RNA sequence: CCCGGGCCUUAACCGCCCUUUAAGCUUUCCGCUUCAUAACCAGAGCCGUCCAGUUUUGCUGGAUCUCGAGUGGCCUGCCACUCUGUUUGAUGCCUCCCUGUUACCACUUUCAAGCCGCUCGCAAGGGCGGCUUUUCUUUC
Numbered sequence: 001c002c003c004g005g006g007c008c009u010u011a012a013c014c015g016c017c018c019u020u021u022a023a024g025c026u027u028u029c030c031g032c033u034u035c036a037u038a039a040c041c042a043g044a045g046c047c048g049u050c051c052a053g054u055u056u057u058g059c060u061g062g063a064u065c066u067c068g069a070g071u072g073g074c075c076u077g078c079c080a081c082u083c084u085g086u087u088u089g090a091u092g093c094c095u096c097c098c099u100g101u102u103a104c105c106a107c108u109u110u111c112a113a114g115c116c117g118c119u120c121g122c123a124a125g126g127g128c129g130g131c132u133u134u135u136c137u138u139u140c
Stems, first nucleotide, its partner, number of pairs: 002043001004041001006014001021036001023034002026031001048064004068083006089102004112133009
RNA: Alphaproteobacterial sRNA BjrC1505
Organism: Enterovirga aerilata